[Rfam]
RNA sequence: GGAGGCGUUCGGGCAGCUGGUGCUCCCCACGGUCUUCAAAACCGAUGUGGCCCGGGAUCCGGGUCAGGCGGGUUCGAUUCCCGUCCGCCUCC
Numbered sequence: 001g002g003a004g005g006c007g008u009u010c011g012g013g014c015a016g017c018u019g020g021u022g023c024u025c026c027c028c029a030c031g032g033u034c035u036u037c038a039a040a041a042c043c044g045a046u047g048u049g050g051c052c053c054g055g056g057a058u059c060c061g062g063g064u065c066a067g068g069c070g071g072g073u074u075c076g077a078u079u080c081c082c083g084u085c086c087g088c089c090u091c092c
Base pairs, nucleotide, nucleotide: 001092002091003090004089005088006087007086012027013026015024016023017022030044031043032042033041048066049065050064051063052062069083070082071081072080